[Rfam]
RNA sequence: UUGAACCUAAACGACGUAAGCCCUACCUCUCUUACAUCCUUACGGCUCCGAAGCCGAUCCAGUGUGAAUUAAGUCAUGUGAAAAAUAA
Numbered sequence: 001u002u003g004a005a006c007c008u009a010a011a012c013g014a015c016g017u018a019a020g021c022c023c024u025a026c027c028u029c030u031c032u033u034a035c036a037u038c039c040u041u042a043c044g045g046c047u048c049c050g051a052a053g054c055c056g057a058u059c060c061a062g063u064g065u066g067a068a069u070u071a072a073g074u075c076a077u078g079u080g081a082a083a084a085a086u087a088a
Base pairs, nucleotide, nucleotide: 035066036065039062040061043056044055045054046053047052
Dot-bracket structure: ..................................((..((..(((((....)))))....))..))......................
The record is an 88-nucleotide RNA from Radiobacillus deserti, which matches "BsrC" in Rfam. By type it is a small RNA. The family has 29 seed sequences and 572 matches in Rfam 15.1. The source organism's lineage runs through Bacteria, Bacillati, Bacilli, Bacillaceae and Radiobacillus. A reference for the family is Saito et al. (2008), "Novel small RNA-encoding genes in the intergenic regions of Bacillus subtilis", Gene. The 301 nucleotide sequence from Kouji Nakamura has been trimmed to a highly conserved ~85 nucleotide long core to form this family. A search with the family's covariance model found it, with a score of 78 bits.